[Rfam]
RNA sequence: ACGUGCUAGUUGGGAAGGUAGCGGCAUCCUGUAACCAUAAAUCCGCUAUAUAUGGAAUGAAUUCCCGACCAGAGGGCGUCUCCUGUGAGGCUUGCCCACAAUAAGAGGUGUUGAACGAAGGGUUCUUGCGCAACAUAAAUCUUACGAACCUCGUCAGGUCCUGGCGGAAGCAGCGAUAAGUAUGUAUUUGUGUGUGCCGCGAGGGUGCCGUUCGGGAGCUGUCUGUUGUGGUAACACUUAUAGAAGCCGUUCGAAGUCGGGUGCACUA
Numbered sequence: 001a002c003g004u005g006c007u008a009g010u011u012g013g014g015a016a017g018g019u020a021g022c023g024g025c026a027u028c029c030u031g032u033a034a035c036c037a038u039a040a041a042u043c044c045g046c047u048a049u050a051u052a053u054g055g056a057a058u059g060a061a062u063u064c065c066c067g068a069c070c071a072g073a074g075g076g077c078g079u080c081u082c083c084u085g086u087g088a089g090g091c092u093u094g095c096c097c098a099c100a101a102u103a104a105g106a107g108g109u110g111u112u113g114a115a116c117g118a119a120g121g122g123u124u125c126u127u128g129c130g131c132a133a134c135a136u137a138a139a140u141c142u143u144a145c146g147a148a149c150c151u152c153g154u155c156a157g158g159u160c161c162u163g164g165c166g167g168a169a170g171c172a173g174c175g176a177u178a179a180g181u182a183u184g185u186a187u188u189u190g191u192g193u194g195u196g197c198c199g200c201g202a203g204g205g206u207g208c209c210g211u212u213c214g215g216g217a218g219c220u221g222u223c224u225g226u227u228g229u230g231g232u233a234a235c236a237c238u239u240a241u242a243g244a245a246g247c248c249g250u251u252c253g254a255a256g257u258c259g260g261g262u263g264c265a266c267u268a
Stems, first nucleotide, its partner, number of pairs: 003266004009058003012030004017025001019023001035055005064261006074252005080246002083243007093233002097230006105223002107220003116214004121209003125203006131194002134192005141184001143182003151176004159168003
RNA: Bacterial large signal recognition particle RNA
Organism: Fenollaria massiliensis